The record is a 122-nucleotide sequence from Halopseudomonas pachastrellae, which matches "Pseudomon-1/ErsA RNA" in Rfam. Rfam describes the family as follows. Functions to regulate the AlgC enzyme. Based on this information, the new name ErsA for the RNA was adopted. Negatively regulates major porin oprD expression responsible for uptake of carbapenem antibiotics, by base pairing with oprD 5'UTR (leading to increased bacterial resistance to meropenem).Positively regulates amrZ mRNA and contributes to biofilm formation and motility. Rfam classes the family as a small RNA. Its family is annotated with sRNA-mediated gene silencing, response to antibiotic and mRNA binding in the Gene Ontology. It scores 80 bits against the family's covariance model.

RNA sequence: AUGCUCCUUAGAUGUGAUUUAGUGUUGGCAGAAAAACCGGGCACUCCCUUUCCUAGCACAGCCCGGUUAGUUAACCCCGAGCCUCCCUCCCCAUAGAAGCUCGGGGUUUUUUUUGCCUGAAA
Number, nucleotide and partner (000 for none) at each position: 001a000002u000003g000004c000005u000006c000007c000008u000009u000010a000011g000012a000013u000014g000015u000016g000017a000018u000019u000020u000021a000022g000023u000024g000025u000026u000027g000028g000029c000030a000031g000032a000033a000034a000035a068036a067037c066038c065039g064040g063041g062042c061043a000044c000045u000046c000047c000048c000049u000050u000051u000052c000053c000054u000055a000056g000057c000058a000059c000060a000061g042062c041063c040064c039065g038066g037067u036068u035069a000070g000071u000072u000073a109074a108075c106076c105077c104078c103079g102080a101081g100082c099083c000084u097085c096086c000087c000088u000089c000090c000091c000092c000093a000094u000095a000096g085097a084098a000099g082100c081101u080102c079103g078104g077105g076106g075107u000108u074109u073110u000111u000112u000113u000114u000115g000116c000117c000118u000119g000120a000121a000122a000